This 158-nucleotide RNA sequence from Sitophilus oryzae belongs to the Rfam family "U12 minor spliceosomal RNA". The literature on the family includes a 2002 paper in Mol Cell by Otake et al., "The divergent U12-type spliceosome is required for pre-mRNA splicing and is essential for development in Drosophila". Lineage of the source: Eukaryota > Eumetazoa > Altocrustacea > Endopterygota > Sitophilus. Rfam classes the family as a spliceosomal small nuclear RNA.
[Rfam]
RNA sequence: GUGCCUUAAACUUAUGAGUAAGGAAAAUAUAAGAGCCCUGGUAAUGCUUGGCUUACAUGCUAGCUAACCUAGCCCGAAUUUUUGAAGGGGAACAGGUCGUCCCAUUGGACUGGCAGCUUACUUUCUCGCUGCCUGGUUCGGGUGAAGCGAUCUUCCCC
Numbered sequence: 001g002u003g004c005c006u007u008a009a010a011c012u013u014a015u016g017a018g019u020a021a022g023g024a025a026a027a028u029a030u031a032a033g034a035g036c037c038c039u040g041g042u043a044a045u046g047c048u049u050g051g052c053u054u055a056c057a058u059g060c061u062a063g064c065u066a067a068c069c070u071a072g073c074c075c076g077a078a079u080u081u082u083u084g085a086a087g088g089g090g091a092a093c094a095g096g097u098c099g100u101c102c103c104a105u106u107g108g109a110c111u112g113g114c115a116g117c118u119u120a121c122u123u124u125c126u127c128g129c130u131g132c133c134u135g136g137u138u139c140g141g142g143u144g145a146a147g148c149g150a151u152c153u154u155c156c157c158c
Base pairs, nucleotide, nucleotide: 004023005022006021007020008019033054034053035052036051037050040047059073060072061071062070063069087158088157089156090155091154094153095152096151097150098149099148100147103142107139108138109137110136111135113132114131115130116129117128